RNA sequence: CUGAGGGCACACGACUGGCGCAGGUGGGCAACCACCGGGGAGUGACCGCGAUGAGCAUCGUCCGCCUGGGUGCUCAGC
Numbered sequence: 001c002u003g004a005g006g007g008c009a010c011a012c013g014a015c016u017g018g019c020g021c022a023g024g025u026g027g028g029c030a031a032c033c034a035c036c037g038g039g040g041a042g043u044g045a046c047c048g049c050g051a052u053g054a055g056c057a058u059c060g061u062c063c064g065c066c067u068g069g070g071u072g073c074u075c076a077g078c
Stems, first nucleotide, its partner, number of pairs: 003049001005047001010044003015039002017066004024035004055073005
RNA: ZMP/ZTP riboswitch aptamer (pfl RNA motif)
Organism: Nocardioides euryhalodurans